[Rfam]
RNA sequence: CUCAUGGGCUUCUGUCAUGAGUAGCAAACCACGUAGGGCAGCUUGAUUGCUCCUCAUGCAAACUUGACAUUAAGAGAUUUUGGAAGCAUGAUUUUUUGGUAUUUGGGCAGCUGGUGAUUGUUGGUCUUGGCAUCCUU
Numbered sequence: 001c002u003c004a005u006g007g008g009c010u011u012c013u014g015u016c017a018u019g020a021g022u023a024g025c026a027a028a029c030c031a032c033g034u035a036g037g038g039c040a041g042c043u044u045g046a047u048u049g050c051u052c053c054u055c056a057u058g059c060a061a062a063c064u065u066g067a068c069a070u071u072a073a074g075a076g077a078u079u080u081u082g083g084a085a086g087c088a089u090g091a092u093u094u095u096u097u098g099g100u101a102u103u104u105g106g107g108c109a110g111c112u113g114g115u116g117a118u119u120g121u122u123g124g125u126c127u128u129g130g131c132a133u134c135c136u137u
Base pairs, nucleotide, nucleotide: 001083003014004013006011016058017057018056019055020054021053023051024050025049026048027047059082060081061080062079064077065076105135106134107133110131111130112129113128114127116126117125118124119123
RNA: U11 spliceosomal RNA
Organism: Camelus ferus